Source information: Small nucleolar RNA SNORA23: a 183-nucleotide sequence from Aquarana catesbeiana. The family has 9 seed sequences and 1,092 matches in Rfam 15.1. The literature on the family includes a 2001 paper in EMBO J by Huttenhofer et al., "RNomics: an experimental approach that identifies 201 candidates for novel, small, non-messenger RNAs in mouse". It scores 115 bits against the family's covariance model. Rfam describes the family as follows. The members of this family belong to the H/ACA class of snoRNAs which are thought to guide the sites of modification of uridines to pseudouridines. This family includes human snoRNA ACA23 (SNORA23) and mouse snoMBI-1. ACA23 is predicted to guide the pseudouridylation of residue U3737 and U4331 of 28S rRNA. By type it is an H/ACA-box small nucleolar RNA.

RNA sequence: GCGGUGCAGUGUGCGCAGUGUCAGUCUGCGUCUGGUGGAGCGGUGCGUCGGUGUGCUGCUGGCUCCCCGCUCCGCUCACACACAUCCCGCUGCCAGAGACUAAUGUGAGAUCAUAGUACUGGUCUAGUGAUGUCUGCUGGACACCCCCCAUCCACUGGCCAGCCUCCAAACUCUCCCACAUCU
Numbered sequence: 001g002c003g004g005u006g007c008a009g010u011g012u013g014c015g016c017a018g019u020g021u022c023a024g025u026c027u028g029c030g031u032c033u034g035g036u037g038g039a040g041c042g043g044u045g046c047g048u049c050g051g052u053g054u055g056c057u058g059c060u061g062g063c064u065c066c067c068c069g070c071u072c073c074g075c076u077c078a079c080a081c082a083c084a085u086c087c088c089g090c091u092g093c094c095a096g097a098g099a100c101u102a103a104u105g106u107g108a109g110a111u112c113a114u115a116g117u118a119c120u121g122g123u124c125u126a127g128u129g130a131u132g133u134c135u136g137c138u139g140g141a142c143a144c145c146c147c148c149c150a151u152c153c154a155c156u157g158g159c160c161a162g163c164c165u166c167c168a169a170a171c172u173c174u175c176c177c178a179c180a181u182c183u
Stems, first nucleotide, its partner, number of pairs: 013090003030081002033078003036074006043067001045065001047063001050060003107175004119162006126156004132146001135143002